[Rfam]
RNA sequence: AUUCAGUUAUAUGACUGACGGAAGUGGAAUUGACCACAGGGAGUAUAAUGUAUAGGGGCCGACCGUCUGGGCAGAAGAG
Numbered sequence: 001a002u003u004c005a006g007u008u009a010u011a012u013g014a015c016u017g018a019c020g021g022a023a024g025u026g027g028a029a030u031u032g033a034c035c036a037c038a039g040g041g042a043g044u045a046u047a048a049u050g051u052a053u054a055g056g057g058g059c060c061g062a063c064c065g066u067c068u069g070g071g072c073a074g075a076a077g078a079g
Stems, first nucleotide, its partner, number of pairs: 003052001006049007015040002017067005024037004058072003

The record is a 79-nucleotide sequence from [Clostridium] innocuum, which matches "ZMP/ZTP riboswitch aptamer (pfl RNA motif)" in Rfam. NCBI's taxonomy places the organism under Bacteria, Bacillati, Eubacteriales, Clostridium, [Clostridium] innocuum. A search with the family's covariance model found it, with a score of 54 bits.